[Rfam]
RNA: MIR2275 microRNA precursor family
RNA sequence: CAGUUGAAUUUGAGGUUUGGAUGGGACCAAAUCUUACUGCAGACUUGCAGAUUAACGCAAGAUUUGGUUUCCUCCAAUAUCUCAUGUUCAGUUG
Numbered sequence: 001c002a003g004u005u006g007a008a009u010u011u012g013a014g015g016u017u018u019g020g021a022u023g024g025g026a027c028c029a030a031a032u033c034u035u036a037c038u039g040c041a042g043a044c045u046u047g048c049a050g051a052u053u054a055a056c057g058c059a060a061g062a063u064u065u066g067g068u069u070u071c072c073u074c075c076a077a078u079a080u081c082u083c084a085u086g087u088u089c090a091g092u093u094g
Stems, first nucleotide, its partner, number of pairs: 004091005011084004017077005023071008032062002